[Rfam]
RNA sequence: GGUUUAAAGGGUGCGUAGGCGGGCUGUUAAGUCAGUGGUGAAAGGUUGACGCUCAACGUUAACAUUGCCAUUGAAACUGGCGGUCUUGAGUGCAAAUGAGGCAGGCGGAAUGUGUUGUGUAGCGGUGAAAUGCAUAGAUAUGACACAGAACACCAAUUGCGAAGGCAGCUUGCUGGAAUGUAACUGACGCUGAGGCACGAAAGCGUGGGGAUCAAACAGGAUUAGAUACCCUGGUAGUCCACGCAGUAAACGAUGAUUACUAGCUGUUAGCGAUAGAAUGUUAGUGGCUAAGCGAAAGCGAUAAGUAAUCCACCUGGGGAGUACGUUCGCAAGAAUGAAACUCAAAGGAAU
Numbered sequence: 001g002g003u004u005u006a007a008a009g010g011g012u013g014c015g016u017a018g019g020c021g022g023g024c025u026g027u028u029a030a031g032u033c034a035g036u037g038g039u040g041a042a043a044g045g046u047u048g049a050c051g052c053u054c055a056a057c058g059u060u061a062a063c064a065u066u067g068c069c070a071u072u073g074a075a076a077c078u079g080g081c082g083g084u085c086u087u088g089a090g091u092g093c094a095a096a097u098g099a100g101g102c103a104g105g106c107g108g109a110a111u112g113u114g115u116u117g118u119g120u121a122g123c124g125g126u127g128a129a130a131u132g133c134a135u136a137g138a139u140a141u142g143a144c145a146c147a148g149a150a151c152a153c154c155a156a157u158u159g160c161g162a163a164g165g166c167a168g169c170u171u172g173c174u175g176g177a178a179u180g181u182a183a184c185u186g187a188c189g190c191u192g193a194g195g196c197a198c199g200a201a202a203g204c205g206u207g208g209g210g211a212u213c214a215a216a217c218a219g220g221a222u223u224a225g226a227u228a229c230c231c232u233g234g235u236a237g238u239c240c241a242c243g244c245a246g247u248a249a250a251c252g253a254u255g256a257u258u259a260c261u262a263g264c265u266g267u268u269a270g271c272g273a274u275a276g277a278a279u280g281u282u283a284g285u286g287g288c289u290a291a292g293c294g295a296a297a298g299c300g301a302u303a304a305g306u307a308a309u310c311c312a313c314c315u316g317g318g319g320a321g322u323a324c325g326u327u328c329g330c331a332a333g334a335a336u337g338a339a340a341c342u343c344a345a346a347g348g349a350a351u
Stems, first nucleotide, its partner, number of pairs: 001314003009311001011198004016192001018191003022085007030078002032074009045063007089185003092181003097176001100174007107151001111147008122133003159166002203244006213237001217233004255310006263288010292299002316343003325336004
This 351-nucleotide part of an RNA from Paludibacter jiangxiensis belongs to the Rfam family "Bacterial small subunit ribosomal RNA". Gene Ontology terms of the family: ribosome and structural constituent of ribosome. The family's consensus secondary structure is taken from published work.